[Rfam]
RNA sequence: CACGGUAACGGCAAUGGAUUCUGCCGGGCACGACGCCGAACCGCUUCCUUGAUGAAGCCGAUGACUCCUACUCAACA
Numbered sequence: 001c002a003c004g005g006u007a008a009c010g011g012c013a014a015u016g017g018a019u020u021c022u023g024c025c026g027g028g029c030a031c032g033a034c035g036c037c038g039a040a041c042c043g044c045u046u047c048c049u050u051g052a053u054g055a056a057g058c059c060g061a062u063g064a065c066u067c068c069u070a071c072u073c074a075a076c077a
Stems, first nucleotide, its partner, number of pairs: 010025004016068003020064002043058004
This 77-nucleotide RNA from Gillisella ampelina belongs to the Rfam family "Fluoride riboswitch aptamer (crcB RNA motif)".
The family has 289 seed sequences and 2,293 matches in Rfam 15.1.
Taxonomically the source falls in Gillisella ampelina (Bacteria, Pseudomonadota, Alphaproteobacteria, Gillisella).
Pairs were carried over by alignment from the consensus structure, which is taken from published work.